[Rfam]
RNA: Glycine riboswitch aptamer
RNA sequence: AUGAAAAUAAGGGGAGAGAACGUUCUGUUCGAACGUCGCCGAAGGAGCAAACCAACUUGUUGCGUGAAUCUCUCAGGCAAAAAGACUCUUAUUGGACG
Numbered sequence: 001a002u003g004a005a006a007a008u009a010a011g012g013g014g015a016g017a018g019a020a021c022g023u024u025c026u027g028u029u030c031g032a033a034c035g036u037c038g039c040c041g042a043a044g045g046a047g048c049a050a051a052c053c054a055a056c057u058u059g060u061u062g063c064g065u066g067a068a069u070c071u072c073u074c075a076g077g078c079a080a081a082a083a084g085a086c087u088c089u090u091a092u093u094g095g096a097c098g
Base pairs, nucleotide, nucleotide: 006093007092008091009090010089011088012087013086020036021035022034023033038078039077040076041074042073045072046071047070051065052064